[Rfam]
RNA sequence: AUCCUUGUGCUCGGGCACGCGCCGUAGACAGUGAGGUUUAUAACCGAGUCAUGGCCAUUUGCUAGUUGCAAACUACAAUCCGCAAUCUGCAAGAUCUUAUGAUCUUCGCGAAUCUUUCGACCCUGGGUCAUCAC
Numbered sequence: 001a002u003c004c005u006u007g008u009g010c011u012c013g014g015g016c017a018c019g020c021g022c023c024g025u026a027g028a029c030a031g032u033g034a035g036g037u038u039u040a041u042a043a044c045c046g047a048g049u050c051a052u053g054g055c056c057a058u059u060u061g062c063u064a065g066u067u068g069c070a071a072a073c074u075a076c077a078a079u080c081c082g083c084a085a086u087c088u089g090c091a092a093g094a095u096c097u098u099a100u101g102a103u104c105u106u107c108g109c110g111a112a113u114c115u116u117u118c119g120a121c122c123c124u125g126g127g128u129c130a131u132c133a134c
Stems, first nucleotide, its partner, number of pairs: 021055005027050003035045003088110003091106006124133003
RNA: U4 spliceosomal RNA
Organism: Leucosporidium creatinivorum